[Rfam]
RNA sequence: AAAAUUUAAUAAGUAAAGCCGGAGACAGCAGGUGCUAAAAGCUUAAUAUCCUGCCUAGGUCGAAACUCUAAUUGCUCGAAUACCACUCGUGAGGGUGUGAUUACCGUCGCAUGAAGAGAUUAAUGCUAAACCCCGGCUAACAUAGCUGGGGUUUGUUGUUUUGAGU
Numbered sequence: 001a002a003a004a005u006u007u008a009a010u011a012a013g014u015a016a017a018g019c020c021g022g023a024g025a026c027a028g029c030a031g032g033u034g035c036u037a038a039a040a041g042c043u044u045a046a047u048a049u050c051c052u053g054c055c056u057a058g059g060u061c062g063a064a065a066c067u068c069u070a071a072u073u074g075c076u077c078g079a080a081u082a083c084c085a086c087u088c089g090u091g092a093g094g095g096u097g098u099g100a101u102u103a104c105c106g107u108c109g110c111a112u113g114a115a116g117a118g119a120u121u122a123a124u125g126c127u128a129a130a131c132c133c134c135g136g137c138u139a140a141c142a143u144a145g146c147u148g149g150g151g152u153u154u155g156u157u158g159u160u161u162u163g164a165g166u
Stems, first nucleotide, its partner, number of pairs: 028054005034042003131151009